[Rfam]
RNA sequence: AUUCCCUUUCGCUGCGCUUUCACUGAUAAUACGCCCCCGGUUUGCACACCGGGAAUCCAGGAGAGUUCAUGUAC
Numbered sequence: 001a002u003u004c005c006c007u008u009u010c011g012c013u014g015c016g017c018u019u020u021c022a023c024u025g026a027u028a029a030u031a032c033g034c035c036c037c038c039g040g041u042u043u044g045c046a047c048a049c050c051g052g053g054a055a056u057c058c059a060g061g062a063g064a065g066u067u068c069a070u071g072u073a074c
Base pairs, nucleotide, nucleotide: 036053037052038051039050040049041048
RNA: PyrD leader